[Rfam]
RNA: ALIL pseudoknot
Organism: Malonomonas rubra
RNA sequence: UGCUUUUUUCGCCCAGGCGGAGCUCGACCGCAAACCGAAGUAAUGGUGUUUUUUAUUGAUGAGCAUCGAAGCCAAUACGGGGUCGAGCCGAUCUGUCGCCAGUUACCGAUCGCCCCA
Number, nucleotide and partner (000 for none) at each position: 001u000002g000003c000004u000005u000006u000007u000008u000009u000010c000011g000012c000013c000014c000015a000016g000017g031018c030019g029020g028021a000022g000023c000024u000025c000026g000027a000028c020029c019030g018031c017032a000033a000034a000035c000036c000037g000038a000039a000040g000041u000042a000043a000044u000045g000046g000047u000048g000049u000050u000051u000052u000053u000054u000055a000056u000057u000058g000059a000060u000061g000062a000063g000064c000065a000066u000067c000068g000069a000070a000071g000072c000073c000074a000075a000076u000077a000078c000079g116080g115081g114082g113083u000084c000085g000086a000087g000088c000089c112090g111091a000092u109093c108094u000095g106096u105097c000098g103099c000100c000101a000102g000103u098104u000105a096106c095107c000108g093109a092110u000111c090112g089113c082114c081115c080116c079117a000